[Rfam]
RNA: eL15-Euryarchaeota ribosomal protein leader
RNA sequence: GCGGAUCCUUCGAUCCGUUGGGAUGUAACCUUUAAGGUUGAACCUCAAA
Numbered sequence: 001g002c003g004g005a006u007c008c009u010u011c012g013a014u015c016c017g018u019u020g021g022g023a024u025g026u027a028a029c030c031u032u033u034a035a036g037g038u039u040g041a042a043c044c045u046c047a048a049a
Base pairs, nucleotide, nucleotide: 001018002017003016004015005014006013007012020044021043027039028038029037030036031035